[Rfam]
RNA sequence: AAACAUUUGCUCUUUUAGUGUUUGUCCGGUAGGUUUCCUCAAGGAGAAAGCCCCC
Dot-bracket structure: ...............................(((((.(((...))).)))))...
A member of the RNA family "U7 small nuclear RNA" from Coregonus sp. 'balchen', 55 nucleotides long. The source organism's lineage runs through Eukaryota, Clupeocephala, Protacanthopterygii, Salmonidae and Coregonus. The family has 49 seed sequences and 10,439 matches in Rfam 15.1. Pairs were carried over by alignment from the consensus structure, which was predicted with PFOLD. About the family: Animal histone pre-mRNAs are spliced by a different mechanism than nuclear pre-mRNAs and self-splicing introns. This processing involves the U7 snRNP, which contains only one RNA species: U7. The 5' end of U7 RNA is thought to base-pair to a conserved spacer element downstream of the cleavage site in histone pre-mRNA. This family contains a number of annotated U7 pseudogenes. For this family Rfam cites "3' end processing of mouse histone pre-mRNA: evidence for additional base-pairing between U7 snRNA and pre-mRNA" (Spycher et al., Nucleic Acids Res, 1994).